The family of this 165-nucleotide sequence from Mollisiaceae sp. DMI_Dod_QoI is "Small nucleolar RNA snR80". The organism belongs to Mollisiaceae, within Eukaryota. The base pairs follow the family's consensus structure, which was predicted with WAR. For this family Rfam cites "Genome-wide searching for pseudouridylation guide snoRNAs: analysis of the Saccharomyces cerevisiae genome" (Schattner et al., Nucleic Acids Res, 2004). The match comes from Rfam's covariance-model search (46 bits). Clan: SNORA28 clan. Gene Ontology terms of the family: RNA processing and nucleolus. It is annotated as an H/ACA-box small nucleolar RNA.

RNA sequence: UACACUCGCCAAACACUCUGGCCCUUACCUCCCUUCCCUCGAGGAUCGGUUCAAUCUGUGGUAUAGGCCUAUUUUUGGAGCGAGAAGACGAACACUGUCCGAUUACUCACCGCGAUGCUCUUCCUUUGGCGUGGGCAUGGUGGUCCAUAUCUUUCUGGUCAACAU
Numbered sequence: 001u002a003c004a005c006u007c008g009c010c011a012a013a014c015a016c017u018c019u020g021g022c023c024c025u026u027a028c029c030u031c032c033c034u035u036c037c038c039u040c041g042a043g044g045a046u047c048g049g050u051u052c053a054a055u056c057u058g059u060g061g062u063a064u065a066g067g068c069c070u071a072u073u074u075u076u077g078g079a080g081c082g083a084g085a086a087g088a089c090g091a092a093c094a095c096u097g098u099c100c101g102a103u104u105a106c107u108c109a110c111c112g113c114g115a116u117g118c119u120c121u122u123c124c125u126u127u128g129g130c131g132u133g134g135g136c137a138u139g140g141u142g143g144u145c146c147a148u149a150u151c152u153u154u155c156u157g158g159u160c161a162a163c164a165u
Base pairs, nucleotide, nucleotide: 006083007082008081020069021068022067023066026063027062028061029060031049032048097160099158100157110143111142112141113140115138116137117136118135119134120133